[Rfam]
Shown here is a 95-nucleotide RNA from Erwinia sp. Leaf53, a member of the family "Tryptophan operon leader". The literature on the family includes a 1982 paper in Annu Rev Genet by Kolter and Yanofsky, "Attenuation in amino acid biosynthetic operons". It scores 46 bits against the family's covariance model. At least 6 amino acid operons are known to be regulated by attenuation. In each a leader sequence of 150-200 bp is found upstream of the first gene in the operon.
RNA sequence: ACCGGUUGGUGGCACACUUCUCCCUGAACGGGCGGAGUUGUUCUGCACAGAUGAGUCGUGCAAACCCCAGGCCCGCUGAAUGCGGGCUUUUUUUU
Numbered sequence: 001a002c003c004g005g006u007u008g009g010u011g012g013c014a015c016a017c018u019u020c021u022c023c024c025u026g027a028a029c030g031g032g033c034g035g036a037g038u039u040g041u042u043c044u045g046c047a048c049a050g051a052u053g054a055g056u057c058g059u060g061c062a063a064a065c066c067c068c069a070g071g072c073c074c075g076c077u078g079a080a081u082g083c084g085g086g087c088u089u090u091u092u093u094u095u
Stems, first nucleotide, its partner, number of pairs: 009046004016038005022032003070088007